Overview:
The family of this 70-nucleotide sequence from Novipirellula herctigrandis is "int-alpA RNA". Rfam describes the family as follows. Acidobacteria (1 example), Planctomycetes (1 example), Proteobacteria. It is annotated as a small RNA.
RNA sequence: GCAUUGGCUAGGUUCUGCAGACCGAAGACCAACUUCCCGAGUUGGCUGCCAUUGCCCUUUUUUGUUCGGG
Numbered sequence: 001g002c003a004u005u006g007g008c009u010a011g012g013u014u015c016u017g018c019a020g021a022c023c024g025a026a027g028a029c030c031a032a033c034u035u036c037c038c039g040a041g042u043u044g045g046c047u048g049c050c051a052u053u054g055c056c057c058u059u060u061u062u063u064g065u066u067c068g069g070g
Stems, first nucleotide, its partner, number of pairs: 001055003005051004011023004029045005036070005